A member of the RNA family "c-di-AMP riboswitch aptamer (ydaO/yuaA leader)" from Paenibacillus phyllosphaerae, 131 nucleotides long.
The literature on the family includes a 2004 paper in Proc Natl Acad Sci U S A by Barrick et al., "New RNA motifs suggest an expanded scope for riboswitches in bacterial genetic control".
The family has 106 seed sequences and 7,607 matches in Rfam 15.1.
It scores 85 bits against the family's covariance model.
About the family: This family represents a conserved RNA structure found upstream of the ydaO and yuaA genes in Bacillus subtilis and related genes in other bacteria.
[Rfam]
RNA sequence: CCACAUACCUUGCCGAAUUCCGUAAGGAAACGGGGGAUCCAUUUUGGGUGAAUUAAUCUGGUAAUAAGAGAUUAUAGGGAACCUUCAACCGAACCCCUCAGCUAACCUCGUAGGCAUCGAAGGGAGAACAA
Numbered sequence: 001c002c003a004c005a006u007a008c009c010u011u012g013c014c015g016a017a018u019u020c021c022g023u024a025a026g027g028a029a030a031c032g033g034g035g036g037a038u039c040c041a042u043u044u045u046g047g048g049u050g051a052a053u054u055a056a057u058c059u060g061g062u063a064a065u066a067a068g069a070g071a072u073u074a075u076a077g078g079g080a081a082c083c084u085u086c087a088a089c090c091g092a093a094c095c096c097c098u099c100a101g102c103u104a105a106c107c108u109c110g111u112a113g114g115c116a117u118c119g120a121a122g123g124g125a126g127a128a129c130a131a
Base pairs, nucleotide, nucleotide: 011116012115013114014113018029019028020027030111031110032109033108034107035106046096047095048094054074055073056072057071058070059069077090078089